[Rfam]
Shown here is a 77-nucleotide RNA sequence from Parnassius apollo, a member of the family "Mammalian CPEB3 ribozyme".
The base pairs follow the family's consensus structure, which is taken from published work.
About the family: The mammalian CPEB3 ribozyme is a self cleaving RNA located in the second intron of the CPEB3 gene which belongs to a family of genes regulating messenger RNA polyadenylation.
Rfam links the family to the GO term RNA nuclease activity.
Taxonomically the source falls in Parnassius (Eukaryota, Glossata, Neolepidoptera, Heteroneura).

RNA sequence: AUAAAUAUUCAUUUGGUCAUUGUAGAAGCGUGCUCGUCGCGACCCCUGCCAGCCCUUUUCAGGGCUGCAAUUCUACA
Numbered sequence: 001a002u003a004a005a006u007a008u009u010c011a012u013u014u015g016g017u018c019a020u021u022g023u024a025g026a027a028g029c030g031u032g033c034u035c036g037u038c039g040c041g042a043c044c045c046c047u048g049c050c051a052g053c054c055c056u057u058u059u060c061a062g063g064g065c066u067g068c069a070a071u072u073c074u075a076c077a
Stems, first nucleotide, its partner, number of pairs: 015044004021077007028040003050067007